[Rfam]
RNA: mir-184 microRNA precursor family
Organism: Pararge aegeria
RNA sequence: ACAGCGAUGGGCCCUUGUCAUUCUUCUUGCCCAGUGUAUUAAGCUACUGGACGGAGAACUGAUAAGGGCCUGUCCUGUA
Numbered sequence: 001a002c003a004g005c006g007a008u009g010g011g012c013c014c015u016u017g018u019c020a021u022u023c024u025u026c027u028u029g030c031c032c033a034g035u036g037u038a039u040u041a042a043g044c045u046a047c048u049g050g051a052c053g054g055a056g057a058a059c060u061g062a063u064a065a066g067g068g069c070c071u072g073u074c075c076u077g078u079a
Stems, first nucleotide, its partner, number of pairs: 012068009021058006030050002